Overview: The record is a 110-nucleotide RNA from Desulfosporosinus acididurans, which matches "TPP riboswitch aptamer (THI element)" in Rfam.

[Rfam]
RNA sequence: ACUGAAUAUAACGGGAGCUUAAGAAAUUAGGCUGAGAGGGUGGUUAGAGUUACUGCCGACCGAACCUGAUCUGGAUAAUGCCAGCGGAGGAAAUGUGUUGAGAAGAAGUA
Numbered sequence: 001a002c003u004g005a006a007u008a009u010a011a012c013g014g015g016a017g018c019u020u021a022a023g024a025a026a027u028u029a030g031g032c033u034g035a036g037a038g039g040g041u042g043g044u045u046a047g048a049g050u051u052a053c054u055g056c057c058g059a060c061c062g063a064a065c066c067u068g069a070u071c072u073g074g075a076u077a078a079u080g081c082c083a084g085c086g087g088a089g090g091a092a093a094u095g096u097g098u099u100g101a102g103a104a105g106a107a108g109u110a
Stems, first nucleotide, its partner, number of pairs: 006098005012058003017032005039054005065090003071084004